Notes
A member of the RNA family "mir-3 microRNA precursor family" from Aedes aegypti, 79 nucleotides long. The family is grouped with related families in Rfam's "mir-3 clan". The source organism's lineage runs through Eukaryota, Protostomia, Mandibulata, Pterygota and Stegomyia. Rfam's curators put it in the seed alignment. A reference for the family is Aravin et al. (2003), "The small RNA profile during Drosophila melanogaster development", Dev Cell. Pairs were carried over by alignment from the consensus structure, which was predicted with RNAalifold. Rfam links the family to the GO terms RISC complex and miRNA-mediated post-transcriptional gene silencing.
RNA sequence: GUUAUGCGACUAACUUCGUUCAGUUUGGUGUCAUACGAAGGUUUCCAGUUUCAUCACUGGGCAAAGUUUGUCGCAUAAA
Numbered sequence: 001g002u003u004a005u006g007c008g009a010c011u012a013a014c015u016u017c018g019u020u021c022a023g024u025u026u027g028g029u030g031u032c033a034u035a036c037g038a039a040g041g042u043u044u045c046c047a048g049u050u051u052c053a054u055c056a057c058u059g060g061g062c063a064a065a066g067u068u069u070g071u072c073g074c075a076u077a078a079a
Base pairs, nucleotide, nucleotide: 005075006074007073008072009071010070012068013067014066018062019061021059022058023057024056